[Rfam]
RNA: mir-9193 microRNA precursor family
RNA sequence: GGGGAGGGGGGGAGGUCCCUCAGCCCGAAUUGCAAGAGGGAGCAGGCCAGGCCGAGGGACACCACCUGUGCACU
Dot-bracket structure: (.(.(((.((....(((((((.(((.(..((((........))))..).))).))))))).)).))).).)...